[Rfam]
RNA sequence: UCAGUCGGCUGGACGGCCGUCCCGGCGAUCACCGAAAGGUGGCCGGGGAGGAAAGUCCGGGCUCCAUGGACCAACGGUGCCGGAUAAGGUCCGGCGGGGGCGACCCCAGGGAGAGUGCCACAGAGAACAGACCGCCUGCGGCCGCGUUGCGUCUUGGCCGUCGGCAAGGGUGAAACGGUGCGGCAAGAGCGCACCGCGCGUCUGGCAACGGAAGCGGCACGGCAAACCCCACCGGGAGCAAAACCGAAUAGGGACGGCGUGGAGGCCGGUUCGUCUGGGUUCGCCCGGGCGGGCUCGUCUCCGGAUCGGUGUCCGGAUCCAGCCGUCCGGGUAGGUCGCUCGAGGCGCCGGGCAACCGGCGUCCCAGAGGAAUGGCCGUCACGCGGAGGGGCAACUCUCCGCCCUACAGAACCCGGCUUACAGGCCGGCUGAUCGU
Numbered sequence: 001u002c003a004g005u006c007g008g009c010u011g012g013a014c015g016g017c018c019g020u021c022c023c024g025g026c027g028a029u030c031a032c033c034g035a036a037a038g039g040u041g042g043c044c045g046g047g048g049a050g051g052a053a054a055g056u057c058c059g060g061g062c063u064c065c066a067u068g069g070a071c072c073a074a075c076g077g078u079g080c081c082g083g084a085u086a087a088g089g090u091c092c093g094g095c096g097g098g099g100g101c102g103a104c105c106c107c108a109g110g111g112a113g114a115g116u117g118c119c120a121c122a123g124a125g126a127a128c129a130g131a132c133c134g135c136c137u138g139c140g141g142c143c144g145c146g147u148u149g150c151g152u153c154u155u156g157g158c159c160g161u162c163g164g165c166a167a168g169g170g171u172g173a174a175a176c177g178g179u180g181c182g183g184c185a186a187g188a189g190c191g192c193a194c195c196g197c198g199c200g201u202c203u204g205g206c207a208a209c210g211g212a213a214g215c216g217g218c219a220c221g222g223c224a225a226a227c228c229c230c231a232c233c234g235g236g237a238g239c240a241a242a243a244c245c246g247a248a249u250a251g252g253g254a255c256g257g258c259g260u261g262g263a264g265g266c267c268g269g270u271u272c273g274u275c276u277g278g279g280u281u282c283g284c285c286c287g288g289g290c291g292g293g294c295u296c297g298u299c300u301c302c303g304g305a306u307c308g309g310u311g312u313c314c315g316g317a318u319c320c321a322g323c324c325g326u327c328c329g330g331g332u333a334g335g336u337c338g339c340u341c342g343a344g345g346c347g348c349c350g351g352g353c354a355a356c357c358g359g360c361g362u363c364c365c366a367g368a369g370g371a372a373u374g375g376c377c378g379u380c381a382c383g384c385g386g387a388g389g390g391g392c393a394a395c396u397c398u399c400c401g402c403c404c405u406a407c408a409g410a411a412c413c414c415g416g417c418u419u420a421c422a423g424g425c426c427g428g429c430u431g432a433u434c435g436u
Stems, first nucleotide, its partner, number of pairs: 001432010011421001012380007020048007028040003053419003057416005062238004075234005080094005095109001096107004110229002115227002117223003132169002134165003138161007177195006196218001197216003201212004243336003252328006306321001308319003344363008
Source information: This 436-nucleotide sequence from Rhodoplanes elegans belongs to the Rfam family "Bacterial RNase P class A". Its family is annotated with tRNA processing, ribonuclease P activity and dimeric ribonuclease P complex in the Gene Ontology. About the family: Ribonuclease P (RNase P) is a ubiquitous endoribonuclease, found in archaea, bacteria and eukarya as well as chloroplasts and mitochondria.